[Rfam]
RNA sequence: UCCAUUCCCAAGCACAAUCAUCGGCAGGCCCGGGGGAACCACUUCUCCGGUCCGAUCCGGCUCAUCCGGUCGGCUCGGACCUUGGGGUGAAGCCCGCGCAAGCGGGCCGGGCGUCUCCCGCCCGAACCCGACAGCUAACUCCGUCGGCUCAUCAGGAGAAAAUCA
Numbered sequence: 001u002c003c004a005u006u007c008c009c010a011a012g013c014a015c016a017a018u019c020a021u022c023g024g025c026a027g028g029c030c031c032g033g034g035g036g037a038a039c040c041a042c043u044u045c046u047c048c049g050g051u052c053c054g055a056u057c058c059g060g061c062u063c064a065u066c067c068g069g070u071c072g073g074c075u076c077g078g079a080c081c082u083u084g085g086g087g088u089g090a091a092g093c094c095c096g097c098g099c100a101a102g103c104g105g106g107c108c109g110g111g112c113g114u115c116u117c118c119c120g121c122c123c124g125a126a127c128c129c130g131a132c133a134g135c136u137a138a139c140u141c142c143g144u145c146g147g148c149u150c151a152u153c154a155g156g157a158g159a160a161a162a163u164c165a
Stems, first nucleotide, its partner, number of pairs: 007147002012029002031143005040084002085129003093106004109123004